[Rfam]
RNA sequence: AUCAAGGCUAGAGUCAUGCUUGAGUAUUGGCUAUUGCCUUAGUGUGCUAGAGUCCUCGAAAAGUAACUGCUGAUCUUAUUCACUAGCUAUGGGCUUUGUAGCAGUCAGUCACCAGGGUAGGAACAUGU
Numbered sequence: 001a002u003c004a005a006g007g008c009u010a011g012a013g014u015c016a017u018g019c020u021u022g023a024g025u026a027u028u029g030g031c032u033a034u035u036g037c038c039u040u041a042g043u044g045u046g047c048u049a050g051a052g053u054c055c056u057c058g059a060a061a062a063g064u065a066a067c068u069g070c071u072g073a074u075c076u077u078a079u080u081c082a083c084u085a086g087c088u089a090u091g092g093g094c095u096u097u098g099u100a101g102c103a104g105u106c107a108g109u110c111a112c113c114a115g116g117g118u119a120g121g122a123a124c125a126u127g128u
Stems, first nucleotide, its partner, number of pairs: 002059002005056002007053003012048002015046006024037003070120003074116003082109003086105001088103001091102001